[Rfam]
RNA sequence: UUAUGUAAAAGGCAAACUUAUUGAAAAAUAAGGACGCAAAGCUACGAGUCUAAGGUGAAAUCACUAUGAUAGUCGGGUUGCCAGG
Numbered sequence: 001u002u003a004u005g006u007a008a009a010a011g012g013c014a015a016a017c018u019u020a021u022u023g024a025a026a027a028a029u030a031a032g033g034a035c036g037c038a039a040a041g042c043u044a045c046g047a048g049u050c051u052a053a054g055g056u057g058a059a060a061u062c063a064c065u066a067u068g069a070u071a072g073u074c075g076g077g078u079u080g081c082c083a084g085g
Stems, first nucleotide, its partner, number of pairs: 012037002017032006040079004045075003048070003055064003